[Rfam]
RNA sequence: AUGCCUCAAAGUUAUGAGUAAGGAAAAUAAUUCAGUGUGACACAUGAAUCCUCACUGUUAAUGUGAGAUGAAUUUUUAAGUGGGUAAAGGUUGCCCCUAAGGUGACCGGCCUACUUUGUGGGAUGCCUGGGAGUCACAAUCUGCCAG
Numbered sequence: 001a002u003g004c005c006u007c008a009a010a011g012u013u014a015u016g017a018g019u020a021a022g023g024a025a026a027a028u029a030a031u032u033c034a035g036u037g038u039g040a041c042a043c044a045u046g047a048a049u050c051c052u053c054a055c056u057g058u059u060a061a062u063g064u065g066a067g068a069u070g071a072a073u074u075u076u077u078a079a080g081u082g083g084g085u086a087a088a089g090g091u092u093g094c095c096c097c098u099a100a101g102g103u104g105a106c107c108g109g110c111c112u113a114c115u116u117u118g119u120g121g122g123a124u125g126c127c128u129g130g131g132a133g134u135c136a137c138a139a140u141c142u143g144c145c146a147g
Stems, first nucleotide, its partner, number of pairs: 004023003008019001032047003051067005081147001083145003088142006097131002100128005106122002109119002
Dot-bracket structure: ...(((.(..........).)))........(((..........)))...(((((.......))))).............(.(((..((((((...((.(((((.((.((.......)).)).))))).)).....))))))))).)
The record is a 147-nucleotide sequence from Canis lupus, which matches "U12 minor spliceosomal RNA" in Rfam. A reference for the family is Tarn and Steitz (1997), "Pre-mRNA splicing: the discovery of a new spliceosome doubles the challenge", Trends Biochem Sci. The match comes from Rfam's covariance-model search (100 bits). Taxonomically the source falls in Canis lupus (Eukaryota, Bilateria, Vertebrata, Gnathostomata).